A member of the RNA family "Small nucleolar RNA snoR2/U65" from Corchorus olitorius, 149 nucleotides long. Rfam classes the family as an H/ACA-box small nucleolar RNA. NCBI's taxonomy places the organism under Eukaryota, Streptophyta, Gunneridae, Apeibeae, Corchorus. The literature on the family includes a 1998 paper in J Cell Sci by Shaw et al., "Localization and processing from a polycistronic precursor of novel snoRNAs in maize". A search with the family's covariance model found it, with a score of 144 bits. The base pairs follow the family's consensus structure, which was predicted with WAR.
RNA sequence: GGUCCGAUGCCACGUCGCCGGUAGCUAAAAAAGGGCGGUGACCGGCGAUGCUAUGAUUGGACCGAGAGGAAUCUCAUGUUUCGCCUUCUGAUAGGAACCUGUGGAUCUGAUUCUUGUGGUCUACGGAGCCGUUUUCGGCGAUUACAUUU
Numbered sequence: 001g002g003u004c005c006g007a008u009g010c011c012a013c014g015u016c017g018c019c020g021g022u023a024g025c026u027a028a029a030a031a032a033g034g035g036c037g038g039u040g041a042c043c044g045g046c047g048a049u050g051c052u053a054u055g056a057u058u059g060g061a062c063c064g065a066g067a068g069g070a071a072u073c074u075c076a077u078g079u080u081u082c083g084c085c086u087u088c089u090g091a092u093a094g095g096a097a098c099c100u101g102u103g104g105a106u107c108u109g110a111u112u113c114u115u116g117u118g119g120u121c122u123a124c125g126g127a128g129c130c131g132u133u134u135u136c137g138g139c140g141a142u143u144a145c146a147u148u149u
Stems, first nucleotide, its partner, number of pairs: 002062007009054001013050006020043003024036003081141005094130002099126003103122005
Dot-bracket structure: .((((((((...((((((.(((.(((.......)))....))).))))))...).)))))))..................(((((........((...(((.(((((..........))))).)))..))......)))))........